[Rfam]
RNA sequence: UGGGACCUUCGGGGCCCUCUACCAUCACAGACCGGGCGGCAACGCCUGGCGAAGCAGACGGAAGACAGGAA
Numbered sequence: 001u002g003g004g005a006c007c008u009u010c011g012g013g014g015c016c017c018u019c020u021a022c023c024a025u026c027a028c029a030g031a032c033c034g035g036g037c038g039g040c041a042a043c044g045c046c047u048g049g050c051g052a053a054g055c056a057g058a059c060g061g062a063a064g065a066c067a068g069g070a071a
Base pairs, nucleotide, nucleotide: 002017003016004015006014007013008012033048034047035046036045037044038043
RNA: L2-Alphaproteobacteria ribosomal protein leader